[Rfam]
RNA sequence: CCUCCCGCUUCUCCUCCCUGAGCGGGGCCGAAUCGAUAUUCGCGAUAAGGCAUUCCUUCCCUGGAGUUACUCCCCUAUCUCCAGGGGUUUUUUUU
Numbered sequence: 001c002c003u004c005c006c007g008c009u010u011c012u013c014c015u016c017c018c019u020g021a022g023c024g025g026g027g028c029c030g031a032a033u034c035g036a037u038a039u040u041c042g043c044g045a046u047a048a049g050g051c052a053u054u055c056c057u058u059c060c061c062u063g064g065a066g067u068u069a070c071u072c073c074c075c076u077a078u079c080u081c082c083a084g085g086g087g088u089u090u091u092u093u094u095u
Stems, first nucleotide, its partner, number of pairs: 004026006027051003033045002058086003063081002
RNA: Burkholderia RNA 7 (anti-hemB)
Organism: Oxalobacteraceae bacterium IMCC9480